[Rfam]
Nucleotides: 108
Stems, first nucleotide, its partner, number of pairs: 043101006054089006061081004
Number, partner (000 for none) and nucleotide at each position: 001000u002000u003000u004000u005000u006000g007000u008000u009000a010000u011000u012000g013000g014000u015000u016000u017000a018000g019000a020000g021000u022000c023000u024000g025000a026000a027000a028000a029000a030000c031000u032000c033000a034000a035000a036000u037000a038000g039000u040000g041000u042000u043101g044100u045099g046098u047097u048096g049000u050000c051000a052000u053000c054089a055088g056087c057086u058085u059084c060000u061081u062080c063079u064078c065000u066000u067000g068000c069000a070000u071000u072000u073000u074000u075000a076000a077000c078064g079063a080062g081061a082000u083000u084059g085058g086057a087056g088055u089054u090000a091000a092000a093000u094000a095000a096048c097047a098046g099045c100044a101043c102000u103000a104000a105000a106000u107000u108000u